[Rfam]
RNA sequence: UAGAAUAGGGUUUCUCAAGGGUGGUCGGUUCAUUCCCCUAUGAAAGGGGGUGAUGCCUAAUGACAGUUUUUCAAGCAUUGAUGUUAGCAUUUUCAUUUGCGAGCUUAAUCGUUGCGGUCCUGUCUUUUCACCAAAAAAAAUAACCCACCCUUGAGCCGGCAAGCAUAAGUAGUGGGUCAUUUCCUCUAUUCGCCGAUCCCCCUGCGGGAACCGUCUAUUGCAGGACCGAACGAACUGUUCGGUCU
Numbered sequence: 001u002a003g004a005a006u007a008g009g010g011u012u013u014c015u016c017a018a019g020g021g022u023g024g025u026c027g028g029u030u031c032a033u034u035c036c037c038c039u040a041u042g043a044a045a046g047g048g049g050g051u052g053a054u055g056c057c058u059a060a061u062g063a064c065a066g067u068u069u070u071u072c073a074a075g076c077a078u079u080g081a082u083g084u085u086a087g088c089a090u091u092u093u094c095a096u097u098u099g100c101g102a103g104c105u106u107a108a109u110c111g112u113u114g115c116g117g118u119c120c121u122g123u124c125u126u127u128u129c130a131c132c133a134a135a136a137a138a139a140a141u142a143a144c145c146c147a148c149c150c151u152u153g154a155g156c157c158g159g160c161a162a163g164c165a166u167a168a169g170u171a172g173u174g175g176g177u178c179a180u181u182u183c184c185u186c187u188a189u190u191c192g193c194c195g196a197u198c199c200c201c202c203u204g205c206g207g208g209a210a211c212c213g214u215c216u217a218u219u220g221c222a223g224g225a226c227c228g229a230a231c232g233a234a235c236u237g238u239u240c241g242g243u244c245u
Stems, first nucleotide, its partner, number of pairs: 001220003005216001007214001009212001011210001012196002014155008023145003030053003034050005062124005098116004165182001197209004223245010

The family of this 245-nucleotide RNA from Bacillus sp. cl95 is "BsrG".
The match comes from Rfam's covariance-model search (111 bits).
The family has 6 seed sequences and 614 matches in Rfam 15.1.
From the family's description: bsrE, bsrG and bsrH pair through intermolecular interactions with antisense sRNAs. They form type I toxin/antitoxin system that includes an mRNA encoding for a short, toxic peptide (bsrE, bsrG and bsrH) and an antitoxin that is comprised of an antisense RNA. bsrG encodes a 39-amino-acid toxin, and the 180 nucleotide antisense sRNA called SR4 acts as the antitoxin (they overlap by 123 nucleotides). SR4 interaction with the 3'UTR of bsrG RNA promotes bsrG degradation and inhibits its translation. BsrG interferes with cell envelope biosynthesis, causes membrane invaginations and delocalisation of the cell wall synthesis and initiates autolysis. bsrE RNA encodes 30 amino-acid toxin peptide. Its antitoxin gene, SR5 overlaps by 112 nucleotides at the 3' end of bsrE. SR5 also overlaps bsrG from nucleotide 163 to 52 (Rfam overlap check). The antitoxin SR5 promotes bsrE degradation but unlike SR4 it does not directly inhibits toxin mRNA translation.
Its family is annotated with autolysis and toxin activity in the Gene Ontology.
It is annotated as a small RNA.